[Rfam]
This 119-nucleotide RNA sequence from Aquibium carbonis belongs to the Rfam family "Alphaproteobacterial ar14". Smr14C2 was renamed NfeR1 (Nodule Formation Efficiency RNA) highly expressed in salt stress and during the symbiotic interaction on legume roots. The base pairs follow the family's consensus structure. The source organism's lineage runs through Bacteria, Pseudomonadota, Hyphomicrobiales, Phyllobacteriaceae and Aquibium.
RNA sequence: GAGUUUCGCCAGAACCUACCUCCUCCCAGGUUCUGACGGAUUGGCAAGGCAUCCACCUCCUCCCGGGUGCCUUCCGAAAUCAGCACCGGUCGCACCUCCUCCCGCGACCGGUGCUGUCC
Numbered sequence: 001g002a003g004u005u006u007c008g009c010c011a012g013a014a015c016c017u018a019c020c021u022c023c024u025c026c027c028a029g030g031u032u033c034u035g036a037c038g039g040a041u042u043g044g045c046a047a048g049g050c051a052u053c054c055a056c057c058u059c060c061u062c063c064c065g066g067g068u069g070c071c072u073u074c075c076g077a078a079a080u081c082a083g084c085a086c087c088g089g090u091c092g093c094a095c096c097u098c099c100u101c102c103c104g105c106g107a108c109c110g111g112u113g114c115u116g117u118c119c
Stems, first nucleotide, its partner, number of pairs: 006039003010035007044075001046073008083114011
Dot-bracket structure: .....(((.(((((((............))))))).)))....(.((((((((............)))))))).).......(((((((((((..........))))))))))).....